Annotation: Shown here is a 72-nucleotide RNA sequence from Stutzerimonas stutzeri, a member of the family "Pseudomonas sRNA P10". The base pairs follow the family's consensus structure, which was predicted with WAR. A search with the family's covariance model found it, with a score of 67 bits.
RNA sequence: CCUAGGCGACCCCACCGCGUGCCCGAAAACGGGCCACGGCACCAACCCGAUCGCGGCCGGCUCUCCUGACGU
Numbered sequence: 001c002c003u004a005g006g007c008g009a010c011c012c013c014a015c016c017g018c019g020u021g022c023c024c025g026a027a028a029a030c031g032g033g034c035c036a037c038g039g040c041a042c043c044a045a046c047c048c049g050a051u052c053g054c055g056g057c058c059g060g061c062u063c064u065c066c067u068g069a070c071g072u
Stems, first nucleotide, its partner, number of pairs: 007071002017040002020036002023033002051069003055065002
Dot-bracket structure: ......((........((.((.((.......)).))..))..........(((.((.......)).))))).
By type it is a small RNA.
On this family, see Livny et al., Nucleic Acids Res 2006: "Identification of 17 Pseudomonas aeruginosa sRNAs and prediction of sRNA-encoding genes in 10 diverse pathogens using the bioinformatic tool sRNAPredict2".